A member of the RNA family "ASpks TB sRNA" from Streptomyces pilosus, 75 nucleotides long. Taxonomically the source falls in Streptomyces (Bacteria, Bacillati, Actinomycetota, Actinomycetes). A search with the family's covariance model found it, with a score of 83 bits.

RNA sequence: CUUGAGCGAGCCCAGCCAGAGGGGUCGUCCCUCGGGGCGUCCCUGGCCGUAGGUGGCCAGCAGUGCCUGUGCCUC
Numbered sequence: 001c002u003u004g005a006g007c008g009a010g011c012c013c014a015g016c017c018a019g020a021g022g023g024g025u026c027g028u029c030c031c032u033c034g035g036g037g038c039g040u041c042c043c044u045g046g047c048c049g050u051a052g053g054u055g056g057c058c059a060g061c062a063g064u065g066c067c068u069g070u071g072c073c074u075c
Stems, first nucleotide, its partner, number of pairs: 015025003031071001033069001038065002043060003047056003